RNA sequence: GCCGAUAUGUUGCCUUUAUCUGCAUUUGCACCUGCACUUUAAGUACUCGGUUUCUCUGUUGUGACAUAUAAAUAAUAUAACUAUGUCAGUUGAGGACUGAAGAGAUCAAUAUAUUAUUAUAUAAUAUGGGAAUAGAGGGACCGAGAACGAGGUGCAGGUGCAUCUGCAGGUGAAUGCCAUAUUGGA
Numbered sequence: 001g002c003c004g005a006u007a008u009g010u011u012g013c014c015u016u017u018a019u020c021u022g023c024a025u026u027u028g029c030a031c032c033u034g035c036a037c038u039u040u041a042a043g044u045a046c047u048c049g050g051u052u053u054c055u056c057u058g059u060u061g062u063g064a065c066a067u068a069u070a071a072a073u074a075a076u077a078u079a080a081c082u083a084u085g086u087c088a089g090u091u092g093a094g095g096a097c098u099g100a101a102g103a104g105a106u107c108a109a110u111a112u113a114u115u116a117u118u119a120u121a122u123a124a125u126a127u128g129g130g131a132a133u134a135g136a137g138g139g140a141c142c143g144a145g146a147a148c149g150a151g152g153u154g155c156a157g158g159u160g161c162a163u164c165u166g167c168a169g170g171u172g173a174a175u176g177c178c179a180u181a182u183u184g185g186a
Base pairs, nucleotide, nucleotide: 002185003184004183005182006181007180008179009178012177013176015174016173017172018171019170020169021168022167023166024165027162028161029160030159031158032157033156034155035154036153037152038151039150053105054104055103056102057101
Rfam assigns this 186-nucleotide RNA sequence from Glycine soja to the family "MIR530 microRNA precursor family". The match comes from Rfam's covariance-model search (89 bits). Lineage of the source: Eukaryota > eudicotyledons > Pentapetalae > Glycine > Glycine subgen. Soja. The literature on the family includes a 2008 paper in Plant J by Lu et al., "Stress-responsive microRNAs in Populus".